mir-252 microRNA precursor family: a 72-nucleotide RNA sequence from Portunus trituberculatus. The family has 44 seed sequences and 422 matches in Rfam 15.1. A search with the family's covariance model found it, with a score of 51 bits. On this family, see Ruby et al., Cell 2006: "Large-scale sequencing reveals 21U-RNAs and additional microRNAs and endogenous siRNAs in C. elegans". Pairs were carried over by alignment from the consensus structure, which was predicted with RNAalifold. The family is grouped with related families in Rfam's "mir-252 microRNA precursor family".
RNA sequence: GUAGGUUUCUAAGUAGUAGUGCCGCAGGUAAGAGAGUUAACAUUACCUGUCCACGCCUACUUAAAUACCUGG
Numbered sequence: 001g002u003a004g005g006u007u008u009c010u011a012a013g014u015a016g017u018a019g020u021g022c023c024g025c026a027g028g029u030a031a032g033a034g035a036g037u038u039a040a041c042a043u044u045a046c047c048u049g050u051c052c053a054c055g056c057c058u059a060c061u062u063a064a065a066u067a068c069c070u071g072g
Base pairs, nucleotide, nucleotide: 002071003070004069005068006067010063011062012061013060014059015058016057019054024050025049026048027047028046029045030044